[Rfam]
RNA: Small nucleolar RNA SNORD113/SNORD114 family
Nucleotides: 070
Base pairs, nucleotide, nucleotide: 002068003067004066005065006064
Number, partner (000 for none) and nucleotide at each position: 001000u002068g003067g004066a005065u006064u007000g008000a009000u010000g011000a012000u013000g014000a015000c016000c017000a018000c019000u020000g021000g022000u023000g024000g025000c026000c027000u028000a029000u030000g031000a032000g033000u034000c035000a036000u037000a038000c039000a040000a041000u042000g043000a044000a045000u046000a047000c048000g049000u050000g051000u052000c053000u054000a055000g056000a057000a058000c059000u060000c061000u062000g063000a064006g065005g066004u067003c068002c069000a070000u